[Rfam]
RNA sequence: GGGUCAAUGAUGACAACCGAAAGUCAAGAACAGAAUGAUGACAUAAAAAUCAUGCUCAAUAGGAUUACGCUGAGGCCC
Number, nucleotide and partner (000 for none) at each position: 001g078002g077003g076004u075005c072006a071007a000008u069009g068010a000011u000012g000013a000014c000015a000016a000017c000018c000019g000020a000021a000022a000023g000024u000025c000026a000027a000028g000029a000030a000031c000032a000033g000034a000035a000036u000037g000038a000039u000040g000041a000042c000043a000044u000045a000046a000047a000048a000049a000050u000051c000052a000053u000054g000055c000056u000057c000058a000059a000060u000061a000062g000063g000064a000065u000066u000067a000068c009069g008070c000071u006072g005073a000074g000075g004076c003077c002078c001
Small nucleolar RNA SNORD115: a 78-nucleotide RNA from Rattus norvegicus. On this family, see Cavaille et al., Proc Natl Acad Sci U S A 2000: "Identification of brain-specific and imprinted small nucleolar RNA genes exhibiting an unusual genomic organization". The family's RNA type in Rfam is C/D-box small nucleolar RNA. The organism belongs to Rattus, within Eukaryota. Gene Ontology terms of the family: nucleolus and RNA processing.